[Rfam]
RNA sequence: CGAGUAGGAUAAAUGAUCGCGGCUGGCAAAACGAAAGGUGUCAGACGAGGAAAGUCCGGGCUUCACAGGGCAGGAUGCCGGAUAACGUCCGGCGGAGGCGACUCCAGGGACAGUGCAACAGAAAUAUACCGCCGGCCAUAAGCCGGUAAGGGUGGAAGGGCAGUGUAAGAGACUACCGCCCUGCUGGUAACAGCGGGGGCACAUGUAAACCCCAUUCGAAGCAAGACCGAGCAGAGACAUAUGGCGGCCCGUCAGUUUCAGGUUGGUUGCUUGAGCCAUGCGGCAACGCAUGGCCUAGAUAGAUGAUCAUUCACGACAUAACCCGGCUUAUCGUUCUGCUCGCAGA
Numbered sequence: 001c002g003a004g005u006a007g008g009a010u011a012a013a014u015g016a017u018c019g020c021g022g023c024u025g026g027c028a029a030a031a032c033g034a035a036a037g038g039u040g041u042c043a044g045a046c047g048a049g050g051a052a053a054g055u056c057c058g059g060g061c062u063u064c065a066c067a068g069g070g071c072a073g074g075a076u077g078c079c080g081g082a083u084a085a086c087g088u089c090c091g092g093c094g095g096a097g098g099c100g101a102c103u104c105c106a107g108g109g110a111c112a113g114u115g116c117a118a119c120a121g122a123a124a125u126a127u128a129c130c131g132c133c134g135g136c137c138a139u140a141a142g143c144c145g146g147u148a149a150g151g152g153u154g155g156a157a158g159g160g161c162a163g164u165g166u167a168a169g170a171g172a173c174u175a176c177c178g179c180c181c182u183g184c185u186g187g188u189a190a191c192a193g194c195g196g197g198g199g200c201a202c203a204u205g206u207a208a209a210c211c212c213c214a215u216u217c218g219a220a221g222c223a224a225g226a227c228c229g230a231g232c233a234g235a236g237a238c239a240u241a242u243g244g245c246g247g248c249c250c251g252u253c254a255g256u257u258u259c260a261g262g263u264u265g266g267u268u269g270c271u272u273g274a275g276c277c278a279u280g281c282g283g284c285a286a287c288g289c290a291u292g293g294c295c296u297a298g299a300u301a302g303a304u305g306a307u308c309a310u311u312c313a314c315g316a317c318a319u320a321a322c323c324c325g326g327c328u329u330a331u332c333g334u335u336c337u338g339c340u341c342g343c344a345g346a
Stems, first nucleotide, its partner, number of pairs: 001342010011331001012311007020047002023044006052329003056326005061221004068250004073217005078092005093107001094105004108212002113210002115206003129151002131147006159177002162174003178200001179198008225268004234259005243253003275294008
RNA: Bacterial RNase P class A
Organism: Firmicutes bacterium CAG:56